[Rfam]
The family of this 180-nucleotide RNA from Pogona vitticeps is "Small nucleolar RNA SNORA23". Rfam describes the family as follows. The members of this family belong to the H/ACA class of snoRNAs which are thought to guide the sites of modification of uridines to pseudouridines. This family includes human snoRNA ACA23 (SNORA23) and mouse snoMBI-1. ACA23 is predicted to guide the pseudouridylation of residue U3737 and U4331 of 28S rRNA. For this family Rfam cites "RNomics: an experimental approach that identifies 201 candidates for novel, small, non-messenger RNAs in mouse" (Huttenhofer et al., EMBO J, 2001).
RNA sequence: GCAGUCAUGUGUGCAUAGCUUCUCAUCUGUGCCUGGCACAUGGUCCUUAUGUGUUCUGCAUUAGACUUGUGUUGCCCACACAAAACCUGUGGCCUAAGAGCAACUUGAGAUCAUAGUACUGGUCUAGUAAUGUCAAAAGACAAGCUUAACACUGGCCUGCCUCCAAACUCUCAAACAAGC
Numbered sequence: 001g002c003a004g005u006c007a008u009g010u011g012u013g014c015a016u017a018g019c020u021u022c023u024c025a026u027c028u029g030u031g032c033c034u035g036g037c038a039c040a041u042g043g044u045c046c047u048u049a050u051g052u053g054u055u056c057u058g059c060a061u062u063a064g065a066c067u068u069g070u071g072u073u074g075c076c077c078a079c080a081c082a083a084a085a086c087c088u089g090u091g092g093c094c095u096a097a098g099a100g101c102a103a104c105u106u107g108a109g110a111u112c113a114u115a116g117u118a119c120u121g122g123u124c125u126a127g128u129a130a131u132g133u134c135a136a137a138a139g140a141c142a143a144g145c146u147u148a149a150c151a152c153u154g155g156c157c158u159g160c161c162u163c164c165a166a167a168c169u170c171u172c173a174a175a176c177a178a179g180c
Base pairs, nucleotide, nucleotide: 013090014089015088030082031081034078035077036076037074038073039071040070041069043067046064047063050060051059052058106173107172108171109170110169119159121157122156123155124154126153127152128151131144132141133140134139